[Rfam]
RNA sequence: ACCGGCCUGCGAAGCAGGUGUGGGGAAUACCGCUGGUUGAACCAACAUUCAUUGAACAGGGACCUAGCUCGUAGAUAUGGCUCGGUGUGCUAAGUCCGCCAGUCCGGAAAGCCUAAAGAGCCACGGCAGGGUCCCGCCGUCUUAGGACGGGUUCACCAGCGCCUCACUGCACGGCCAAGCGGGUCGGUU
Dot-bracket structure: .(((((((((...((..((.............((((.((((((...............(((.(((.((.(.......((((((.....((....((((......))))..)).....)))))).))).))).)))..............))))))))))...........)).))...)))))))))..